[Rfam]
RNA sequence: UCUGUUCUGUGAUGAGGCUAUGGAACACGCACUGGGCACAGUGCCUGACAUAAAGUGACGAAUUAUUCCAUGCUGCCUUCCUGCUGAGAACUGG
Numbered sequence: 001u002c003u004g005u006u007c008u009g010u011g012a013u014g015a016g017g018c019u020a021u022g023g024a025a026c027a028c029g030c031a032c033u034g035g036g037c038a039c040a041g042u043g044c045c046u047g048a049c050a051u052a053a054a055g056u057g058a059c060g061a062a063u064u065a066u067u068c069c070a071u072g073c074u075g076c077c078u079u080c081c082u083g084c085u086g087a088g089a090a091c092u093g094g
Stems, first nucleotide, its partner, number of pairs: 001094002004091002
RNA: Small nucleolar RNA U83B
Organism: Leptobrachium leishanense